[Rfam]
RNA sequence: ACUUGUUGUAGAGGCCGCGAUUGUCAUCAGUACUAUAACAGAAAGUUCAAAUCUGAGAUUUGAUAACUUCAAUGUAUAGGAAAGGGGCCAUCGCCGAAAUAAAUAGAUAAGAGUCUAUUUAUUGGGUCUAUGUUUAAGAAGCAUAGAACUGUCUUAUGAGAAUUGCCCAAUUUUCAUAAAGAAGAGCUACAUCUUGU
Numbered sequence: 001a002c003u004u005g006u007u008g009u010a011g012a013g014g015c016c017g018c019g020a021u022u023g024u025c026a027u028c029a030g031u032a033c034u035a036u037a038a039c040a041g042a043a044a045g046u047u048c049a050a051a052u053c054u055g056a057g058a059u060u061u062g063a064u065a066a067c068u069u070c071a072a073u074g075u076a077u078a079g080g081a082a083a084g085g086g087g088c089c090a091u092c093g094c095c096g097a098a099a100u101a102a103a104u105a106g107a108u109a110a111g112a113g114u115c116u117a118u119u120u121a122u123u124g125g126g127u128c129u130a131u132g133u134u135u136a137a138g139a140a141g142c143a144u145a146g147a148a149c150u151g152u153c154u155u156a157u158g159a160g161a162a163u164u165g166c167c168c169a170a171u172u173u174u175c176a177u178a179a180a181g182a183a184g185a186g187c188u189a190c191a192u193c194u195u196g197u
Base pairs, nucleotide, nucleotide: 007191008190009189010188011187017094018093019092020091021090023088024087025086033079034078035077036076037075039074040073098123099122100121101120102119103118104117105116106115107114108113124150125149127147128146129145130144131143132142133141134140152182153181154180155179156177157176158175159174160173161172162171

Notes: This 197-nucleotide RNA from Clostridium disporicum belongs to the Rfam family "Lysine riboswitch aptamer". Riboswitches are metabolite binding domains within certain messenger RNAs that serve as precision sensors for their corresponding targets. Lineage of the source: Bacteria > Bacillati > Clostridia > Clostridiaceae > Clostridium. Rfam 15.1 lists 3,224 matches to the family in 1,923 species. A search with the family's covariance model found it, with a score of 97 bits. Its family is annotated with lysine biosynthetic process in the Gene Ontology.